A member of the RNA family "Small nucleolar RNA R64/Z200 family" from Papaver somniferum, 89 nucleotides long.
The base pairs follow the family's consensus structure, which was predicted with PFOLD.
The literature on the family includes a 2002 paper in Mol Cell Biol by Galardi et al., "Purified box C/D snoRNPs are able to reproduce site-specific 2'-O-methylation of target RNA in vitro".
By type it is a C/D-box small nucleolar RNA.
Lineage of the source: Eukaryota > Tracheophyta > Euphyllophyta > Spermatophyta > Papaver.
RNA sequence: GUCUUGCAUGGAUGGUUUAUGAACAUUUCACAUGUCAGACUUCAGAGAUUUUGGAAACAAGAGAAGGCAUUUCAUUAUUCUGAGCAGAC
Numbered sequence: 001g002u003c004u005u006g007c008a009u010g011g012a013u014g015g016u017u018u019a020u021g022a023a024c025a026u027u028u029c030a031c032a033u034g035u036c037a038g039a040c041u042u043c044a045g046a047g048a049u050u051u052u053g054g055a056a057a058c059a060a061g062a063g064a065a066g067g068c069a070u071u072u073c074a075u076u077a078u079u080c081u082g083a084g085c086a087g088a089c
Stems, first nucleotide, its partner, number of pairs: 001089002004087004047058001049056002